[Rfam]
RNA sequence: UCAUUAUUGAAAGCGCUUGGACUGUUUUGGAACGAAUAGCAAAACAGUUGACGAGGUGGAGGUUUAUCGAGUAAUCGGCGGAUGCCUCCCGGCUGCAUGUCUCAGCUGAAAGUGCUGGCUCAAAUCAUGAAGGCGACUUCGUGGCUAAAGGCCAGGACACAGGCAUAA
Numbered sequence: 001u002c003a004u005u006a007u008u009g010a011a012a013g014c015g016c017u018u019g020g021a022c023u024g025u026u027u028u029g030g031a032a033c034g035a036a037u038a039g040c041a042a043a044a045c046a047g048u049u050g051a052c053g054a055g056g057u058g059g060a061g062g063u064u065u066a067u068c069g070a071g072u073a074a075u076c077g078g079c080g081g082a083u084g085c086c087u088c089c090c091g092g093c094u095g096c097a098u099g100u101c102u103c104a105g106c107u108g109a110a111a112g113u114g115c116u117g118g119c120u121c122a123a124a125u126c127a128u129g130a131a132g133g134c135g136a137c138u139u140c141g142u143g144g145c146u147a148a149a150g151g152c153c154a155g156g157a158c159a160c161a162g163g164c165a166u167a168a
Stems, first nucleotide, its partner, number of pairs: 020049008029040001058089005067078004090108006112158002115155004126143007
RNA: glmS glucosamine-6-phosphate activated ribozyme aptamer
Organism: Marinococcus luteus